Annotation: The family of this 96-nucleotide RNA sequence from Clostridium sp. FS41 is "NiCo (Nickel/Cobalt) riboswitch aptamer". A search with the family's covariance model found it, with a score of 68 bits. Its Rfam clan is "NiCo_riboswitches". The base pairs follow the family's consensus structure, which is taken from published work. Rfam links the family to the GO terms metal ion homeostasis and cobalt ion binding.
Nucleotides: 096
Stems, first nucleotide, its partner, number of pairs: 011094003016090001018049003022043001025041005052066005068087006
Number, partner (000 for none) and nucleotide at each position: 001000a002000c003000a004000g005000u006000a007000c008000a009000a010000u011094c012093u013092g014000a015000a016090c017000a018049g019048g020047c021000c022043u023000g024000a025041u026040a027039u028038g029037g030000a031000a032000u033000g034000a035000a036000a037029c038028c039027a040026u041025a042000a043022a044000g045000g046000a047020g048019c049018c050000g051000g052066g053065c054064c055063g056062c057000a058000a059000c060000a061000u062056g063055c064054g065053g066052c067000a068087g069086c070085a071084g072083g073082u074000a075000g076000g077000a078000a079000a080000g081000c082073a083072c084071c085070u086069g087068u088000g089000g090016g091000a092013c093012a094011g095000u096000c